The record is a 75-nucleotide sequence from Corynebacterium sp. ED61, which matches "ctRNA" in Rfam. Rfam links the family to the GO term mRNA binding. By type it is an antisense RNA. Rfam's curators write: Rolling circle replication plasmids contain a number of mechanisms to maintain a low copy number. One of these methods is to transcribe a small RNA called ctRNA (for counter-transcribed RNA) than is transcribed on the opposite strand to RepB the replication initiation protein. ctRNA binds to the mRNA of repB and causes translational inhibition.
[Rfam]
RNA sequence: GCUUUCUCCCCACUUGGGAUGGGGCGAUAAGCGAGCGUCAUGCGGGUUGCAGCCUGCGUGGCGCUCUUUCUAUGU
Numbered sequence: 001g002c003u004u005u006c007u008c009c010c011c012a013c014u015u016g017g018g019a020u021g022g023g024g025c026g027a028u029a030a031g032c033g034a035g036c037g038u039c040a041u042g043c044g045g046g047u048u049g050c051a052g053c054c055u056g057c058g059u060g061g062c063g064c065u066c067u068u069u070c071u072a073u074g075u
Stems, first nucleotide, its partner, number of pairs: 001032003006026001008024005034065014